The family of this 135-nucleotide RNA from Neodrepanis coruscans is "Small nucleolar RNA SNORA14". The family's consensus secondary structure was predicted with RNAfold. About the family: ACA14 is a member of the H/ACA class of snoRNA that guide the sites of modification of uridines to pseudouridines. The organism belongs to Neodrepanis, within Eukaryota. It scores 80 bits against the family's covariance model.
[Rfam]
RNA sequence: GCGCAUUCCAAACCCUCCCGGCAGCCCUGCCGUUGGCUGCCAGGAUAAGGACGAAUGCCAGAGAAAACCGGUGAUUGAUCCAAAAUGUGGAGCUCUUCUCCCGUGGCUCUUCAUUAUUUCACGUCUCCAACAUCC
Numbered sequence: 001g002c003g004c005a006u007u008c009c010a011a012a013c014c015c016u017c018c019c020g021g022c023a024g025c026c027c028u029g030c031c032g033u034u035g036g037c038u039g040c041c042a043g044g045a046u047a048a049g050g051a052c053g054a055a056u057g058c059c060a061g062a063g064a065a066a067a068c069c070g071g072u073g074a075u076u077g078a079u080c081c082a083a084a085a086u087g088u089g090g091a092g093c094u095c096u097u098c099u100c101c102c103g104u105g106g107c108u109c110u111u112c113a114u115u116a117u118u119u120c121a122c123g124u125c126u127c128c129a130a131c132a133u134c135c
Base pairs, nucleotide, nucleotide: 003058004057005056006055007051008050009049016045017044018043020041021040023038024037025036063134064133070128071127073125074124084115085114086113087112089110090109092107093106098103